[Rfam]
Nucleotides: 031
Base pairs, nucleotide, nucleotide: 001024002023003022004021005020006019
Number, partner (000 for none) and nucleotide at each position: 001024g002023a003022u004021u005020g006019c007000a008000a009000c010000a011000a012000u013000c014000c015000u016000c017000u018000c019006g020005c021004a022003a023002u024001c025000g026000c027000g028000g029000c030000u031000g